[Rfam]
RNA sequence: UUACUGAGUUUGUUUUCAAUCGAUGUAUUGAUUGAUAAUGAACCUGAUCAUUUUGUUGAAUUUCAGGCAGCGACCAGACAACCGUAGAGAUGGUUUCCACAGAUGAACAGUUUAUACCACCUGUUCGUCUACUAAAUCCCAUCCCACAUCA
Numbered sequence: 001u002u003a004c005u006g007a008g009u010u011u012g013u014u015u016u017c018a019a020u021c022g023a024u025g026u027a028u029u030g031a032u033u034g035a036u037a038a039u040g041a042a043c044c045u046g047a048u049c050a051u052u053u054u055g056u057u058g059a060a061u062u063u064c065a066g067g068c069a070g071c072g073a074c075c076a077g078a079c080a081a082c083c084g085u086a087g088a089g090a091u092g093g094u095u096u097c098c099a100c101a102g103a104u105g106a107a108c109a110g111u112u113u114a115u116a117c118c119a120c121c122u123g124u125u126c127g128u129c130u131a132c133u134a135a136a137u138c139c140c141a142u143c144c145c146a147c148a149u150c151a
Stems, first nucleotide, its partner, number of pairs: 001050001004046001006044001008043007016035007087145001089143005106125005
About this RNA: The family of this 151-nucleotide RNA from Mikania micrantha is "small nucleolar RNA snoR143". Pairs were carried over by alignment from the consensus structure, which was predicted with RNAalifold. On this family, see Chen and Wu, Nucleic Acids Res 2009: "Mining small RNA sequencing data: a new approach to identify small nucleolar RNAs in Arabidopsis". It scores 50 bits against the family's covariance model. By type it is an H/ACA-box small nucleolar RNA. Gene Ontology terms of the family: RNA processing and nucleolus.